[Rfam]
This 126-nucleotide sequence belongs to the Rfam family "Small nucleolar RNA SNORA58". The family has 20 seed sequences and 471 matches in Rfam 15.1. By type it is an H/ACA-box small nucleolar RNA. ACA52 is a member of the H/ACA class of snoRNA that guide the sites of modification of uridines to pseudouridines. Pairs were carried over by alignment from the consensus structure, which was predicted with PFOLD.
RNA sequence: CGUAGACCUUGCUUGACUCUUGUCUGUGGCCAAGCAAGGGGGACAGAGUAUGCGAGAGUAAUUGGAGUUCAUGCAAGUUCUAACCAGCUUACUCAGUAGCUGGGUGAAUUGCAGUACUCCAACAUU
Numbered sequence: 001c002g003u004a005g006a007c008c009u010u011g012c013u014u015g016a017c018u019c020u021u022g023u024c025u026g027u028g029g030c031c032a033a034g035c036a037a038g039g040g041g042g043a044c045a046g047a048g049u050a051u052g053c054g055a056g057a058g059u060a061a062u063u064g065g066a067g068u069u070c071a072u073g074c075a076a077g078u079u080c081u082a083a084c085c086a087g088c089u090u091a092c093u094c095a096g097u098a099g100c101u102g103g104g105u106g107a108a109u110u111g112c113a114g115u116a117c118u119c120c121a122a123c124a125u126u
Base pairs, nucleotide, nucleotide: 007039008038009037010036011035012034013033014032015031064120065119066118067117069116072113073112074111084103085102086101087100088099